[Rfam]
RNA: Glm Y RNA activator of glmS mRNA
Organism: Erwinia sp. Leaf53
RNA sequence: AGUGGCUCAUUCACCUGGUUAUGACAGCCCUGCGCAAGCGGACUAGUAGCUCAUAACAUCCCGAAUGACGCACAAAACGGUGCCUGCCGUCCACCCCACCGAUAAUCGUUCACUCUGUGACGUUAUCAAGCAUCGGACGAAACGUUGAGUUAGGCACCACCUC
Numbered sequence: 001a002g003u004g005g006c007u008c009a010u011u012c013a014c015c016u017g018g019u020u021a022u023g024a025c026a027g028c029c030c031u032g033c034g035c036a037a038g039c040g041g042a043c044u045a046g047u048a049g050c051u052c053a054u055a056a057c058a059u060c061c062c063g064a065a066u067g068a069c070g071c072a073c074a075a076a077a078c079g080g081u082g083c084c085u086g087c088c089g090u091c092c093a094c095c096c097c098a099c100c101g102a103u104a105a106u107c108g109u110u111c112a113c114u115c116u117g118u119g120a121c122g123u124u125a126u127c128a129a130g131c132a133u134c135g136g137a138c139g140a141a142a143c144g145u146u147g148a149g150u151u152a153g154g155c156a157c158c159a160c161c162u163c
Stems, first nucleotide, its partner, number of pairs: 005071002007068006019056005026051003079158007088139005101127005141151003